[Rfam]
RNA sequence: UCCCCGGUAGCUCAGUCGGUAGAGCGGGUGACUGUUAAUCACUAGGUCGGCAGUUCGAGCCUGUCCCGGGGAG
Numbered sequence: 001u002c003c004c005c006g007g008u009a010g011c012u013c014a015g016u017c018g019g020u021a022g023a024g025c026g027g028g029u030g031a032c033u034g035u036u037a038a039u040c041a042c043u044a045g046g047u048c049g050g051c052a053g054u055u056c057g058a059g060c061c062u063g064u065c066c067c068g069g070g071g072a073g
Base pairs, nucleotide, nucleotide: 001072002071003070004069005068006067007066010025011024012023013022027043028042029041030040031039049065050064051063052062053061
RNA: tRNA
Organism: endosymbiont of Tevnia jerichonana